Annotation: The family of this 114-nucleotide RNA from Takifugu rubripes is "U5 spliceosomal RNA". The literature on the family includes a 1997 paper in Nucleic Acids Res by Zwieb, "The uRNA database". It is one of the family's seed sequences. Rfam's curators write: U5 RNA is a component of both types of known spliceosome. The precise function of this molecule is unknown, though it is known that the 5' loop is required for splice site selection and p220 binding, and that both the 3' stem-loop and the Sm site are important for Sm protein binding and cap methylation. Lineage of the source: Eukaryota > Actinopterygii > Teleostei > Eurypterygia > Takifugu. Pairs were carried over by alignment from the consensus structure, which is taken from published work.
[Rfam]
RNA sequence: CACUCUUGUUUCACUUCAGAUCGUAUAAAUCUUUCGCCUUUUACUAAAGAUUUCCGUGGAGUGGAACAACAAGAGUUUAACUCAAUUUUUUGAUGCCCUGCCUCGUGCGGGGCU
Numbered sequence: 001c002a003c004u005c006u007u008g009u010u011u012c013a014c015u016u017c018a019g020a021u022c023g024u025a026u027a028a029a030u031c032u033u034u035c036g037c038c039u040u041u042u043a044c045u046a047a048a049g050a051u052u053u054c055c056g057u058g059g060a061g062u063g064g065a066a067c068a069a070c071a072a073g074a075g076u077u078u079a080a081c082u083c084a085a086u087u088u089u090u091u092g093a094u095g096c097c098c099u100g101c102c103u104c105g106u107g108c109g110g111g112g113c114u
Base pairs, nucleotide, nucleotide: 003075004074005073006072008067009066010065011064012063013062014061015060016059017058018057027053028052029051030050031049032048033047034046093114095113096112097111098110099109100108